This 162-nucleotide sequence from Peromyscus maniculatus belongs to the Rfam family "FGF-1 internal ribosome entry site (IRES)".
RNA sequence: GCCUCCCGGGGAUAAAGGCAUCGCCGGCCUCCUUUUCUGGAUGGACACUCCCUUCUCCUGGUGAAUGGAAACUCCCUUUCUCAGCAGCCUGCUUGCAGCGUCCUGGGAGCCCAGUGUGAUCUCAGCGGCUGCUACCACCCCAGAAGGAAAGGCUCCCACAAC
Dot-bracket structure: ...(...((((.(.(.((.....(....(..((.....))..)).....)).)(((....(.(((.((......)))))..).(((((....(((..(....(..............).)..)))..))))...)......)))...).....))))..)..
For this family Rfam cites "Internal Ribosome Entry Site Structural Motifs Conserved among Mammalian Fibroblast Growth Factor 1 Alternatively Spliced mRNAs" (Martineau et al., Mol Cell Biol, 2004). The base pairs follow the family's consensus structure, which is taken from published work. This family represents the FGF-1 internal ribosome entry site (IRES). The FGF-1 IRES is present in the 5' UTR of the mRNA and allows cap-independent translation. NCBI's taxonomy places the organism under Eukaryota, Eumetazoa, Teleostomi, Amniota, Peromyscus maniculatus.